Notes
The record is a 589-nucleotide part of an RNA from Methanosphaera stadtmanae, which matches "Archaeal large subunit ribosomal RNA" in Rfam. Pairs were carried over by alignment from the consensus structure, which is taken from published work. Taxonomically the source falls in Methanosphaera stadtmanae (Archaea, Methanobacteria, Methanobacteriales, Methanobacteriaceae). Rfam links the family to the GO terms structural constituent of ribosome and ribosome.
RNA sequence: CUUUUUAUGCCAUCUGGGGGAUGGCUAGGCUUGAGAUUAACUUAUGAAGGUCGUGGCAAGCUGCGAUAAGCCUGGGCGAGAAGCAUGCAUUCAUUGAACCUGGGAUUGCCGAAUGAGAUUCUUAUUACUCUUUACCGAGUAAUGAUCCACAUUUGUGGAUUGGGAACCCACUGAAUUGAAACAUCUUAGUAGGUGGAGGAAGAGAAAACAAUUGUGAUGCCGUUAGUAACGUCGAGCGAAAACGGUAUAGGACAAACUGAAUCCCUACUAGAAAUUAAUAGGGAGAUGUGGUGUUGUAAGAUUCAAAAUAUUUAUGGUGGCCUGUUAUUAUCCUUGUUUAAUUAUUGUUGGAAUACUUUAACCGUAGAGGGUGAUAGUCCCGUAGACUUUGGGGUAAUUUGGUCAUUUUUUUUGAAUUCUUGAGUAGCGUUCAUUGGAAAUUGGGCGUGAAUCAAAUUAUAGGGAGGCAUCGACUUCCAAUUCUAAACAUUACUCAAGACCGAUAGUGUAUUUAGUACCGCGAGGGAAUGCUGAAAAGAACCCUUUUAUUAGGGGGUGAAAAGUACCUGAAACCAGAUGGUGACAGCCU
Numbered sequence: 001c002u003u004u005u006u007a008u009g010c011c012a013u014c015u016g017g018g019g020g021a022u023g024g025c026u027a028g029g030c031u032u033g034a035g036a037u038u039a040a041c042u043u044a045u046g047a048a049g050g051u052c053g054u055g056g057c058a059a060g061c062u063g064c065g066a067u068a069a070g071c072c073u074g075g076g077c078g079a080g081a082a083g084c085a086u087g088c089a090u091u092c093a094u095u096g097a098a099c100c101u102g103g104g105a106u107u108g109c110c111g112a113a114u115g116a117g118a119u120u121c122u123u124a125u126u127a128c129u130c131u132u133u134a135c136c137g138a139g140u141a142a143u144g145a146u147c148c149a150c151a152u153u154u155g156u157g158g159a160u161u162g163g164g165a166a167c168c169c170a171c172u173g174a175a176u177u178g179a180a181a182c183a184u185c186u187u188a189g190u191a192g193g194u195g196g197a198g199g200a201a202g203a204g205a206a207a208a209c210a211a212u213u214g215u216g217a218u219g220c221c222g223u224u225a226g227u228a229a230c231g232u233c234g235a236g237c238g239a240a241a242a243c244g245g246u247a248u249a250g251g252a253c254a255a256a257c258u259g260a261a262u263c264c265c266u267a268c269u270a271g272a273a274a275u276u277a278a279u280a281g282g283g284a285g286a287u288g289u290g291g292u293g294u295u296g297u298a299a300g301a302u303u304c305a306a307a308a309u310a311u312u313u314a315u316g317g318u319g320g321c322c323u324g325u326u327a328u329u330a331u332c333c334u335u336g337u338u339u340a341a342u343u344a345u346u347g348u349u350g351g352a353a354u355a356c357u358u359u360a361a362c363c364g365u366a367g368a369g370g371g372u373g374a375u376a377g378u379c380c381c382g383u384a385g386a387c388u389u390u391g392g393g394g395u396a397a398u399u400u401g402g403u404c405a406u407u408u409u410u411u412u413u414g415a416a417u418u419c420u421u422g423a424g425u426a427g428c429g430u431u432c433a434u435u436g437g438a439a440a441u442u443g444g445g446c447g448u449g450a451a452u453c454a455a456a457u458u459a460u461a462g463g464g465a466g467g468c469a470u471c472g473a474c475u476u477c478c479a480a481u482u483c484u485a486a487a488c489a490u491u492a493c494u495c496a497a498g499a500c501c502g503a504u505a506g507u508g509u510a511u512u513u514a515g516u517a518c519c520g521c522g523a524g525g526g527a528a529u530g531c532u533g534a535a536a537a538g539a540a541c542c543c544u545u546u547u548a549u550u551a552g553g554g555g556g557u558g559a560a561a562a563g564u565a566c567c568u569g570a571a572a573c574c575a576g577a578u579g580g581u582g583a584c585a586g587c588c589u
Stems, first nucleotide, its partner, number of pairs: 008582010023567001024531002028501002030498006039491002049110003052065003071104006080092003115123003145160005167198001168196005178185002208215002219246005230236001249484004257291003267279001269277002303415004320403003336387003342360001344359001347356002363367001369381003427448007462478005518525002